[Rfam]
The family of this 88-nucleotide RNA from Mytilus galloprovincialis is "rpsL sRNA". NCBI's taxonomy places the organism under Eukaryota, Lophotrochozoa, Mollusca, Mytilinae, Mytilus. A reference for the family is Meyer et al. (2009), "Identification of candidate structured RNAs in the marine organism 'Candidatus Pelagibacter ubique'", BMC Genomics. The family's consensus secondary structure is taken from published work.

Nucleotides: 088
Stems, first nucleotide, its partner, number of pairs: 010083006016076003020072002022044006048070004
Number, partner (000 for none) and nucleotide at each position: 001000u002000u003000g004000g005000a006000u007000u008000g009000a010083u011082u012081u013080u014079g015078g016076g017075a018074g019000u020072u021071u022044u023043g024042g025041u026040c027039c028000c029000a030000a031000c032000a033000a034000a035000u036000u037000a038000g039027g040026g041025a042024c043023c044022a045000a046000a047000a048070g049069g050068g051067u052000c053000c054000a055000a056000a057000a058000u059000u060000a061000a062000a063000c064000u065000u066000u067051g068050u069049u070048u071021g072020a073000u074018u075017u076016c077000a078015u079014c080013a081012a082011a083010a084000a085000u086000g087000a088000a